[Rfam]
RNA sequence: CCCUGACUACCAUUAUCACAAUUCUGUGGGUAGACACUAGCCACGACAGGAGAACAACAUG
Numbered sequence: 001c002c003c004u005g006a007c008u009a010c011c012a013u014u015a016u017c018a019c020a021a022u023u024c025u026g027u028g029g030g031u032a033g034a035c036a037c038u039a040g041c042c043a044c045g046a047c048a049g050g051a052g053a054a055c056a057a058c059a060u061g
Stems, first nucleotide, its partner, number of pairs: 002050004007033005
RNA: Mu-gpT-DE RNA